[Rfam]
RNA sequence: GGCAGAUUAGAAGUUCGUGCGUUAAGUGCUGGGUGAACAGGGAAUUGUCACCAGACGAAAAGGAAACUUGCGGUACUUACUUCGAUUCCCACUGCU
Numbered sequence: 001g002g003c004a005g006a007u008u009a010g011a012a013g014u015u016c017g018u019g020c021g022u023u024a025a026g027u028g029c030u031g032g033g034u035g036a037a038c039a040g041g042g043a044a045u046u047g048u049c050a051c052c053a054g055a056c057g058a059a060a061a062g063g064a065a066a067c068u069u070g071c072g073g074u075a076c077u078u079a080c081u082u083c084g085a086u087u088c089c090c091a092c093u094g095c096u
Stems, first nucleotide, its partner, number of pairs: 001096005010083005017076003020072003026056002029054004034050003040089004060069003
A member of the RNA family "THF (Tetrahydrofolate) riboswitch aptamer" from Clostridium sulfidigenes, 96 nucleotides long. Rfam links the family to the GO term tetrahydrofolate metabolic process. Tetrahydrofolate (THF) riboswitch was first reported for Ames et al. as an RNA motif in 5' untranslated (5'-UTR)regions of folate transport and biosynthesis genes in Firmicutes genomes. Rfam 15.1 lists 747 matches to the family in 747 species.